[Rfam]
RNA sequence: UUGGCGGUGUACUCCCACUCGCCCUGCGGCCCUGCCAGCACGGUCUCGCCGAAGUACUGGCCGUCCGCGAGGUUGCCGAGCACGGUGUCGCCGCCGUACUCACCUGUGCCGAUCUUGUCGACCUUGCCGUGCGCGAUCAGCACGACGCUGUCCUUCGGGCGGCCCUUCUCGACGAUGACGUCGCCGGCGCCGAACUCCUGCUGCGUGAAGCGGCCGGCGAGCGCCGCGAGGACCUCUUCGUCGUCGAAGCCCUUGAGCAGGGCCAGUUCGGUGAGCUCCAUCGGCACGACGCGGAUGUCCGCGCCGAUGUUCGUGAACGAGACGCGGCCGUCGCCCAGCGUGUAGGUGAGGCGCCGGUUGACGCGGUACGCGCCACCUGCCGCCUGCACCCAGGGGAGCACCUUGAGCAGCCAGCGGGAGGUGAUUCCCUGCAUCUGCGGGAUGGACUUGGUGGUAGUGGCCAGAUUUCGUGCGGCGGCCGUGCCCAAACUCAGCUGCUGACGGCCCU
Numbered sequence: 001u002u003g004g005c006g007g008u009g010u011a012c013u014c015c016c017a018c019u020c021g022c023c024c025u026g027c028g029g030c031c032c033u034g035c036c037a038g039c040a041c042g043g044u045c046u047c048g049c050c051g052a053a054g055u056a057c058u059g060g061c062c063g064u065c066c067g068c069g070a071g072g073u074u075g076c077c078g079a080g081c082a083c084g085g086u087g088u089c090g091c092c093g094c095c096g097u098a099c100u101c102a103c104c105u106g107u108g109c110c111g112a113u114c115u116u117g118u119c120g121a122c123c124u125u126g127c128c129g130u131g132c133g134c135g136a137u138c139a140g141c142a143c144g145a146c147g148c149u150g151u152c153c154u155u156c157g158g159g160c161g162g163c164c165c166u167u168c169u170c171g172a173c174g175a176u177g178a179c180g181u182c183g184c185c186g187g188c189g190c191c192g193a194a195c196u197c198c199u200g201c202u203g204c205g206u207g208a209a210g211c212g213g214c215c216g217g218c219g220a221g222c223g224c225c226g227c228g229a230g231g232a233c234c235u236c237u238u239c240g241u242c243g244u245c246g247a248a249g250c251c252c253u254u255g256a257g258c259a260g261g262g263c264c265a266g267u268u269c270g271g272u273g274a275g276c277u278c279c280a281u282c283g284g285c286a287c288g289a290c291g292c293g294g295a296u297g298u299c300c301g302c303g304c305c306g307a308u309g310u311u312c313g314u315g316a317a318c319g320a321g322a323c324g325c326g327g328c329c330g331u332c333g334c335c336c337a338g339c340g341u342g343u344a345g346g347u348g349a350g351g352c353g354c355c356g357g358u359u360g361a362c363g364c365g366g367u368a369c370g371c372g373c374c375a376c377c378u379g380c381c382g383c384c385u386g387c388a389c390c391c392a393g394g395g396g397a398g399c400a401c402c403u404u405g406a407g408c409a410g411c412c413a414g415c416g417g418g419a420g421g422u423g424a425u426u427c428c429c430u431g432c433a434u435c436u437g438c439g440g441g442a443u444g445g446a447c448u449u450g451g452u453g454g455u456a457g458u459g460g461c462c463a464g465a466u467u468u469c470g471u472g473c474g475g476c477g478g479c480c481g482u483g484c485c486c487a488a489a490c491u492c493a494g495c496u497g498c499u500g501a502c503g504g505c506c507c508u
Stems, first nucleotide, its partner, number of pairs: 006390006014382001019327001021325002025321001027319002031315001035313001037311004047303003051299002054233002057230002060227002063224002065111001067109002075103001078101003082097005117222002122217002127212001130209001131206005140197001144195001149192002154189001156187001158185003165174001167172001235295003240290005250283001253280001255278004262269001329342003353377001356374002362370002391431007399423003403418002407415001437476002440473001442471005448464005477508002480503003486497002
A member of the RNA family "Saccharopolyspora sRNA 350" from Lentzea albidocapillata, 508 nucleotides long. The base pairs follow the family's consensus structure, which was predicted with RNAfold. A search with the family's covariance model found it, with a score of 184 bits. Taxonomically the source falls in Lentzea (Bacteria, Bacillati, Actinomycetes, Pseudonocardiaceae).